Shown here is a 265-nucleotide RNA from Clostridium grantii, a member of the family "Bacterial large signal recognition particle RNA". The match comes from Rfam's covariance-model search (219 bits). The source organism's lineage runs through Bacteria, Bacillota, Clostridia, Clostridiaceae and Clostridium grantii. It is annotated as a non-coding RNA gene. Rfam links the family to the GO terms signal recognition particle, plasma membrane targeting and SRP-dependent cotranslational protein targeting to membrane, signal sequence recognition. Pairs were carried over by alignment from the consensus structure, which is taken from published work.
RNA sequence: UCGUGCUAGACGGGAAGUUAGCGGUGUCCUGUAACCUGCAAUCCGCUGUAGCAGGGUUGAAUUCCAGGCUUAGGCUUUAAUUAGUGUGGCCUGCCUUAUGUAAGUGGUGUUGAGAGCUGGGCCUUACGCAACGGAAGCUCAUGAACCUCGUCAGAUCCGGAAGGAAGCAGCGAUAAGUGAGAUUUUCCGUGUGCCGUGAGUCUACCUAGCUUGAGCCAACUGCAUAAGUAACGCACAUUGAUUACUGUCAAAGCUUGGUGCACGA
Numbered sequence: 001u002c003g004u005g006c007u008a009g010a011c012g013g014g015a016a017g018u019u020a021g022c023g024g025u026g027u028c029c030u031g032u033a034a035c036c037u038g039c040a041a042u043c044c045g046c047u048g049u050a051g052c053a054g055g056g057u058u059g060a061a062u063u064c065c066a067g068g069c070u071u072a073g074g075c076u077u078u079a080a081u082u083a084g085u086g087u088g089g090c091c092u093g094c095c096u097u098a099u100g101u102a103a104g105u106g107g108u109g110u111u112g113a114g115a116g117c118u119g120g121g122c123c124u125u126a127c128g129c130a131a132c133g134g135a136a137g138c139u140c141a142u143g144a145a146c147c148u149c150g151u152c153a154g155a156u157c158c159g160g161a162a163g164g165a166a167g168c169a170g171c172g173a174u175a176a177g178u179g180a181g182a183u184u185u186u187c188c189g190u191g192u193g194c195c196g197u198g199a200g201u202c203u204a205c206c207u208a209g210c211u212u213g214a215g216c217c218a219a220c221u222g223c224a225u226a227a228g229u230a231a232c233g234c235a236c237a238u239u240g241a242u243u244a245c246u247g248u249c250a251a252a253g254c255u256u257g258g259u260g261c262a263c264g265a
Stems, first nucleotide, its partner, number of pairs: 001265006009058003012030004017025003035055005064258007073249003079243010092230002096227006104220002106217003114212008123200006129191002132189005138181005148173004156165003